[Rfam]
RNA sequence: GACAACAAUCAACCUGUUCCUUUUCGACUUCUUUUUUAUCUCCUAACUCUAUUGGGGCUAAGAUCGUUACGAAAGAAAAGUCAAAAACGAACAGAAAGCCUCCCACUGGGAGGCUUUUUUAUA
Numbered sequence: 001g002a003c004a005a006c007a008a009u010c011a012a013c014c015u016g017u018u019c020c021u022u023u024u025c026g027a028c029u030u031c032u033u034u035u036u037u038a039u040c041u042c043c044u045a046a047c048u049c050u051a052u053u054g055g056g057g058c059u060a061a062g063a064u065c066g067u068u069a070c071g072a073a074a075g076a077a078a079a080g081u082c083a084a085a086a087a088c089g090a091a092c093a094g095a096a097a098g099c100c101u102c103c104c105a106c107u108g109g110g111a112g113g114c115u116u117u118u119u120u121a122u123a
Base pairs, nucleotide, nucleotide: 016092017091018090019089021087022086023085024084026082027081028080029079030078032076033075034074036072037071039069042055043054045052056065057064095117096116097115098114099113100112101111102110103109104108
A member of the RNA family "Phenylalanine leader peptide" from Vibrio tapetis, 123 nucleotides long. A reference for the family is Zurawski et al. (1978), "Nucleotide sequence of the leader region of the phenylalanine operon of Escherichia coli", Proc Natl Acad Sci U S A. The family has 71 seed sequences and 379 matches in Rfam 15.1. Rfam classes the family as a cis-regulatory leader. Taxonomically the source falls in Vibrio tapetis (Bacteria, Gammaproteobacteria, Vibrionales, Vibrio). It scores 76 bits against the family's covariance model.